[Rfam]
RNA sequence: GGCUGGUCCAAGUACAGUGGUGUUUUCAACUAAUUAAUCACAACUGGUUACAGAUUUUUUUGUUCCUUCUCCACUCCAAGUGUUUCACUUGACUAGCCUUAA
Numbered sequence: 001g002g003c004u005g006g007u008c009c010a011a012g013u014a015c016a017g018u019g020g021u022g023u024u025u026u027c028a029a030c031u032a033a034u035u036a037a038u039c040a041c042a043a044c045u046g047g048u049u050a051c052a053g054a055u056u057u058u059u060u061u062g063u064u065c066c067u068u069c070u071c072c073a074c075u076c077c078a079a080g081u082g083u084u085u086c087a088c089u090u091g092a093c094u095a096g097c098c099u100u101a102a
Base pairs, nucleotide, nucleotide: 001098002097003096004095005094006093007092008091010090011089016081018079020077022076028064029063030062032060033059
Y RNA: a 102-nucleotide RNA from Cebus imitator. Lineage of the source: Eukaryota > Gnathostomata > Tetrapoda > Platyrrhini > Cebus. The family's RNA type in Rfam is non-coding RNA gene. About the family: Y RNAs are components of the Ro ribonucleoprotein particle (Ro RNP), in association with Ro60 and La proteins. The Y RNAs and Ro60 and La proteins are well conserved, but the function of the Ro RNP is not known. In humans the RNA component can be one of four small RNAs -- hY1, hY3, hY4 and hY5. These small RNAs are predicted to fold into a conserved secondary structure containing three stem structures.